Glycine riboswitch aptamer: a 95-nucleotide sequence from Comamonas denitrificans.

[Rfam]
Nucleotides: 095
Base pairs, nucleotide, nucleotide: 006090007089008088009087010086011085012084013083020041021040022039023038024037025036043075044074045073046071047070050069051068052067056063
Number, partner (000 for none) and nucleotide at each position: 001000g002000c003000g004000u005000u006090u007089u008088u009087u010086g011085c012084g013083g014000g015000a016000g017000a018000g019000a020041g021040g022039g023038c024037u025036g026000c027000c028000g029000u030000c031000a032000c033000c034000a035000c036025c037024a038023g039022c040021c041020c042000c043075g044074c045073c046071g047070a048000a049000g050069g051068c052067g053000c054000a055000a056063a057000c058000u059000c060000c061000c062000a063056u064000a065000a066000u067052c068051g069050c070047u071046c072000a073045g074044g075043c076000c077000c078000c079000g080000g081000u082000a083013c084012c085011g086010c087009a088008a089007a090006a091000a092000g093000a094000u095000u